[Rfam]
RNA sequence: GGGGGUGCACUGGCUUCGACGGGGGUCGCGAAAUCGCCUGGCGCAUGCCGAGGGGGUAGCUUUCCUCGUUAAUCCAGCUGCAAAACUCUAGUUGCCAACGACGACAACUACGCUCUCGCCGCUUAAGGCGUAAGCCCCGAACCCACUUGUGCCCGUGCUCGUGGAUGUAGGGUCAUUAUCACGGAACCGGUCGUGACGGCUGCCUGUCAGUCACGGCUUGAACAAAACAGGCUGGUGCCCCGAUGCGCUUUGCGCGCCGUGCUGUCGGGGGACGAGACCUAACGGAGCGCUAAGCAUGUAGUGCCGGGGAUGGAGUGCCUUCGGACGGGGGUUCGAUUCCCCCCACCUCCACCA
Numbered sequence: 001g002g003g004g005g006u007g008c009a010c011u012g013g014c015u016u017c018g019a020c021g022g023g024g025g026u027c028g029c030g031a032a033a034u035c036g037c038c039u040g041g042c043g044c045a046u047g048c049c050g051a052g053g054g055g056g057u058a059g060c061u062u063u064c065c066u067c068g069u070u071a072a073u074c075c076a077g078c079u080g081c082a083a084a085a086c087u088c089u090a091g092u093u094g095c096c097a098a099c100g101a102c103g104a105c106a107a108c109u110a111c112g113c114u115c116u117c118g119c120c121g122c123u124u125a126a127g128g129c130g131u132a133a134g135c136c137c138c139g140a141a142c143c144c145a146c147u148u149g150u151g152c153c154c155g156u157g158c159u160c161g162u163g164g165a166u167g168u169a170g171g172g173u174c175a176u177u178a179u180c181a182c183g184g185a186a187c188c189g190g191u192c193g194u195g196a197c198g199g200c201u202g203c204c205u206g207u208c209a210g211u212c213a214c215g216g217c218u219u220g221a222a223c224a225a226a227a228c229a230g231g232c233u234g235g236u237g238c239c240c241c242g243a244u245g246c247g248c249u250u251u252g253c254g255c256g257c258c259g260u261g262c263u264g265u266c267g268g269g270g271g272a273c274g275a276g277a278c279c280u281a282a283c284g285g286a287g288c289g290c291u292a293a294g295c296a297u298g299u300a301g302u303g304c305c306g307g308g309g310a311u312g313g314a315g316u317g318c319c320u321u322c323g324g325a326c327g328g329g330g331g332u333u334c335g336a337u338u339c340c341c342c343c344c345a346c347c348u349c350c351a352c353c354a
Base pairs, nucleotide, nucleotide: 001350002349003348004347005346006345007344020323021322022321023320024319025318026317033311034310035309037308038307039306040305041304042303043302044298045297046296047295048294049068050067051066052065053064056081057080058079059078060077061076115134116133118131119130122127136172137171138170140168143164144163145162146161149158153184154183155182156181157180187220189218190217191216192215193214194213195212202232203231204230205229206228235273236272238270239269240268241267242266243265244264246261247260248259257284327343328342329341330340331339
RNA: transfer-messenger RNA
Organism: Pseudoluteimonas lycopersici